[Rfam]
The record is a 68-nucleotide RNA from Rhodococcus sp. Leaf258, which matches "ASdes TB sRNA" in Rfam. By type it is a small RNA. The family's consensus secondary structure is taken from published work.

RNA sequence: AGAUCCACUGGGUCGACCGCGCGAGUCGUCAUGAGGUAGUUGCGCAGCACGAUGGCGUGCCGGUUCUC
Numbered sequence: 001a002g003a004u005c006c007a008c009u010g011g012g013u014c015g016a017c018c019g020c021g022c023g024a025g026u027c028g029u030c031a032u033g034a035g036g037u038a039g040u041u042g043c044g045c046a047g048c049a050c051g052a053u054g055g056c057g058u059g060c061c062g063g064u065u066c067u068c
Stems, first nucleotide, its partner, number of pairs: 004063002008059001011030003015027003035056001037054002040052003044048001